[Rfam]
RNA sequence: AAUUGUGUUCGUAGGAAAAGAGAGAGGCAGAUUUAUUCUAUACUCGAUAAGUACAAAUACGCAAUAGGG
Numbered sequence: 001a002a003u004u005g006u007g008u009u010c011g012u013a014g015g016a017a018a019a020g021a022g023a024g025a026g027g028c029a030g031a032u033u034u035a036u037u038c039u040a041u042a043c044u045c046g047a048u049a050a051g052u053a054c055a056a057a058u059a060c061g062c063a064a065u066a067g068g069g
Stems, first nucleotide, its partner, number of pairs: 003022002006019001008017003043068002051060003
RNA: Plastid-clpP 5UTR RNA
Organism: Solanum tuberosum